[Rfam]
RNA sequence: UUAAUUCAAAUUUGUAUGGAGUUGGAAUGUUUGCCUACGUUUGCGGCUAGGGACGUUGUUCCAACUGCAUUUUUUUACCUA
Numbered sequence: 001u002u003a004a005u006u007c008a009a010a011u012u013u014g015u016a017u018g019g020a021g022u023u024g025g026a027a028u029g030u031u032u033g034c035c036u037a038c039g040u041u042u043g044c045g046g047c048u049a050g051g052g053a054c055g056u057u058g059u060u061c062c063a064a065c066u067g068c069a070u071u072u073u074u075u076u077a078c079c080u081a
Base pairs, nucleotide, nucleotide: 008075009074010073014072016070018068020066021065022064023063024062025061026060027059028058029057034052035051036050039047040046
RNA: mir-2807 microRNA precursor family
Organism: Bombyx mori